RNA sequence: GGCUGGUCUGAAGGUAGUGGGUUAUCUUGAUGAAUUGUUUAGUCAGUUACAGAUCAAACUCCAUGUUCUCUUCUCUGUUCUCACUACUACUCUUGACUAGUCUAAA
Numbered sequence: 001g002g003c004u005g006g007u008c009u010g011a012a013g014g015u016a017g018u019g020g021g022u023u024a025u026c027u028u029g030a031u032g033a034a035u036u037g038u039u040u041a042g043u044c045a046g047u048u049a050c051a052g053a054u055c056a057a058a059c060u061c062c063a064u065g066u067u068c069u070c071u072u073c074u075c076u077g078u079u080c081u082c083a084c085u086a087c088u089a090c091u092c093u094u095g096a097c098u099a100g101u102c103u104a105a106a
Stems, first nucleotide, its partner, number of pairs: 001102008010094002014090002016085006032068003

The family of this 106-nucleotide RNA from Nomascus leucogenys is "Y RNA". NCBI's taxonomy places the organism under Eukaryota, Metazoa, Gnathostomata, Dipnotetrapodomorpha, Nomascus. The match comes from Rfam's covariance-model search (62 bits). The base pairs follow the family's consensus structure, which is taken from published work. About the family: Y RNAs are components of the Ro ribonucleoprotein particle (Ro RNP), in association with Ro60 and La proteins. Rfam classes the family as a non-coding RNA gene.